[Rfam]
RNA sequence: UAAGGUAGUUGAGUCACUGCAGGUAUUGGUAAUACAAUGCUUGAGGAAAGUCCGGACUCCAAAAGGCAAGAUGCCGGAUAACGUCCGGCGAGGGUGACCUUAGGGAAAGUGCCACAGAAAAUAUACCGCAUAAAGGUGCUUAGGUGUUUUUUAUGUAAGGGUGAAAAGGCGAGGUAAGAGCUCACCGCUAAAUUGGUAACAAUUUAGGCAGGGUAAACCCCAUCUGGAGCAAGACCAAAUAUAAACAGUUUUUAAGGCGUGAGCCUUAAAAUCCUUUGUCUUUAGGAUAUACUGUUUGGGUAGGUUGCAUGAGCUUGUGAGUAAUUACAAGCCAAGAUGAAUAGUGACUGCUGAUUUUUUCAGUACAGAAUCCGGCUUAUAGACUACCUUAAAUU
Number, nucleotide and partner (000 for none) at each position: 001u391002a390003a389004g388005g387006u386007a385008g384009u383010u382011g380012a349013g348014u347015c346016a345017c344018u343019g000020c043021a042022g041023g040024u039025a038026u037027u036028g035029g000030u000031a000032a000033u000034a000035c028036a027037a026038u025039g024040c023041u022042u021043g020044a000045g000046g000047a000048a378049a377050g376051u000052c375053c374054g373055g372056a371057c229058u228059c227060c226061a000062a000063a000064a000065g000066g283067c000068a000069a225070g224071a223072u222073g221074c088075c087076g086077g085078a084079u000080a000081a000082c000083g000084u078085c077086c076087g075088g074089c103090g101091a100092g099093g098094g000095u000096g000097a000098c093099c092100u091101u090102a000103g089104g220105g219106a000107a000108a000109g218110u217111g214112c213113c212114a000115c000116a000117g000118a000119a000120a000121a000122u000123a000124u000125a000126c160127c159128g156129c155130a154131u153132a152133a151134a150135g149136g148137u000138g000139c000140u000141u000142a000143g000144g000145u000146g000147u000148u136149u135150u134151u133152u132153a131154u130155g129156u128157a000158a000159g127160g126161g000162u000163g000164a000165a000166a000167a000168g186169g185170c000171g183172a182173g181174g000175u000176a000177a000178g000179a000180g000181c173182u172183c171184a000185c169186c168187g209188c207189u206190a205191a204192a203193u202194u201195g200196g000197u000198a000199a000200c195201a194202a193203u192204u191205u190206a189207g188208g000209c187210a000211g000212g113213g112214u111215a000216a000217a110218c109219c105220c104221c073222a072223u071224c070225u069226g060227g059228a058229g057230c000231a000232a000233g306234a305235c304236c303237a000238a000239a000240u000241a000242u000243a297244a296245a295246c294247a293248g292249u000250u000251u000252u000253u000254a000255a000256g000257g000258c000259g000260u000261g000262a000263g000264c000265c000266u000267u000268a000269a000270a000271a000272u000273c000274c000275u000276u000277u289278g288279u287280c286281u000282u000283u066284a000285g000286g280287a279288u278289a277290u000291a000292c248293u247294g246295u245296u244297u243298g000299g000300g000301u000302a000303g236304g235305u234306u233307g000308c000309a000310u000311g000312a000313g332314c331315u330316u329317g328318u327319g326320a325321g000322u000323a000324a000325u320326u319327a318328c317329a316330a315331g314332c313333c000334a000335a000336g000337a000338u000339g000340a000341a000342u000343a018344g017345u016346g015347a014348c013349u012350g000351c000352u000353g000354a000355u000356u000357u000358u000359u000360u000361c000362a000363g000364u000365a000366c000367a000368g000369a000370a000371u056372c055373c054374g053375g052376c050377u049378u048379a000380u011381a000382g010383a009384c008385u007386a006387c005388c004389u003390u002391a001392a000393a000394u000395u000